RNA: Giant, ornate, lake- and Lactobacillales-derived (GOLLD) RNA
RNA sequence: GGGUGGUGUGUGGUAUUUUGUUCUCCAAAAGGGAAUGAAGCCACUGGAACAGCACAUCAUCAGUUGAAAGGAUAAAUAAUAAAUUAUAGUUUCUUAUUUGGGAAUAAGAGUCCAAUACAACAUAUUACAUUACAGUGAAAGCCUGUUCCACGAAAUAACGAAAGCGACUUAAUCCUUCACUCCAUGAGAAUGAAGGGGCUGAUGAGUCUCGCAAGGCUCAAAAGCUUUUGUUCCGAUUUGCAAGGUUCUCUUAGCGGAGAUUUGUAGCGUGGCAACGUUGACUGAAUUUGAAGAGCAGAGUAGUUAUUUCGAUGUGUCAUAUUAUGCUAGACACAUUAAACUAAAGCAGUCGUGGUCAUUACUUGAGCGCUUAUAGGUUCAAGUGGACACGUGAGGAAUACAUAAUCUCACUAAAGAUGACUAAGAAAGAGUUUAGUCUCAGCUC
Numbered sequence: 001g002g003g004u005g006g007u008g009u010g011u012g013g014u015a016u017u018u019u020g021u022u023c024u025c026c027a028a029a030a031g032g033g034a035a036u037g038a039a040g041c042c043a044c045u046g047g048a049a050c051a052g053c054a055c056a057u058c059a060u061c062a063g064u065u066g067a068a069a070g071g072a073u074a075a076a077u078a079a080u081a082a083a084u085u086a087u088a089g090u091u092u093c094u095u096a097u098u099u100g101g102g103a104a105u106a107a108g109a110g111u112c113c114a115a116u117a118c119a120a121c122a123u124a125u126u127a128c129a130u131u132a133c134a135g136u137g138a139a140a141g142c143c144u145g146u147u148c149c150a151c152g153a154a155a156u157a158a159c160g161a162a163a164g165c166g167a168c169u170u171a172a173u174c175c176u177u178c179a180c181u182c183c184a185u186g187a188g189a190a191u192g193a194a195g196g197g198g199c200u201g202a203u204g205a206g207u208c209u210c211g212c213a214a215g216g217c218u219c220a221a222a223a224g225c226u227u228u229u230g231u232u233c234c235g236a237u238u239u240g241c242a243a244g245g246u247u248c249u250c251u252u253a254g255c256g257g258a259g260a261u262u263u264g265u266a267g268c269g270u271g272g273c274a275a276c277g278u279u280g281a282c283u284g285a286a287u288u289u290g291a292a293g294a295g296c297a298g299a300g301u302a303g304u305u306a307u308u309u310c311g312a313u314g315u316g317u318c319a320u321a322u323u324a325u326g327c328u329a330g331a332c333a334c335a336u337u338a339a340a341c342u343a344a345a346g347c348a349g350u351c352g353u354g355g356u357c358a359u360u361a362c363u364u365g366a367g368c369g370c371u372u373a374u375a376g377g378u379u380c381a382a383g384u385g386g387a388c389a390c391g392u393g394a395g396g397a398a399u400a401c402a403u404a405a406u407c408u409c410a411c412u413a414a415a416g417a418u419g420a421c422u423a424a425g426a427a428a429g430a431g432u433u434u435a436g437u438c439u440c441a442g443c444u445c
Stems, first nucleotide, its partner, number of pairs: 002061008010044005017039009046149007135212002151311009165352005174196006180188003197226004206218001208216002229297005243283002247260004265280002268277002326347003331342001354422006360385008386438003391411006430444003